[Rfam]
RNA sequence: CCUGUUAUAUGACUAACAGUAACCUAGGGAUAGUGCAUAAUUGGCAACGAUUUUGUGCGGAGCUUCCUGACAAUGUACCCCCGAUAAGGUUAUUAAUACUGUGAAGUAUUAAUAAGAGACUCGAAACGACCAUUGGGUUGAGGGA
Numbered sequence: 001c002c003u004g005u006u007a008u009a010u011g012a013c014u015a016a017c018a019g020u021a022a023c024c025u026a027g028g029g030a031u032a033g034u035g036c037a038u039a040a041u042u043g044g045c046a047a048c049g050a051u052u053u054u055g056u057g058c059g060g061a062g063c064u065u066c067c068u069g070a071c072a073a074u075g076u077a078c079c080c081c082c083g084a085u086a087a088g089g090u091u092a093u094u095a096a097u098a099c100u101g102u103g104a105a106g107u108a109u110u111a112a113u114a115a116g117a118g119a120c121u122c123g124a125a126a127c128g129a130c131c132a133u134u135g136g137g138u139u140g141a142g143g144g145a
Stems, first nucleotide, its partner, number of pairs: 002019006027068004033058005039052005080089002090115004099106002119138006